[Rfam]
RNA sequence: UCGCGUCUCACCGAGCUACCUCCUCCCAAGCUCGAGACGUGCGACCCGGCGGAGCAUCCUCCUCCCAGUUCCGCCAAGUCAAAUGCGCCUGCCAGCACCUCCUCCCGCUGGCGGGCGUUUUG
Numbered sequence: 001u002c003g004c005g006u007c008u009c010a011c012c013g014a015g016c017u018a019c020c021u022c023c024u025c026c027c028a029a030g031c032u033c034g035a036g037a038c039g040u041g042c043g044a045c046c047c048g049g050c051g052g053a054g055c056a057u058c059c060u061c062c063u064c065c066c067a068g069u070u071c072c073g074c075c076a077a078g079u080c081a082a083a084u085g086c087g088c089c090u091g092c093c094a095g096c097a098c099c100u101c102c103u104c105c106c107g108c109u110g111g112c113g114g115g116c117g118u119u120u121u122g
Base pairs, nucleotide, nucleotide: 007041009039012034013033014032015031016030017029048075049074050073051072052071053070054069055068086117087116088115089114090113091112092111093110094109095108096107
Shown here is a 122-nucleotide RNA sequence from Roseibium suaedae, a member of the family "Alphaproteobacterial ar14".
The base pairs follow the family's consensus structure.
Smr14C2 was renamed NfeR1 (Nodule Formation Efficiency RNA) highly expressed in salt stress and during the symbiotic interaction on legume roots.
A search with the family's covariance model found it, with a score of 62 bits.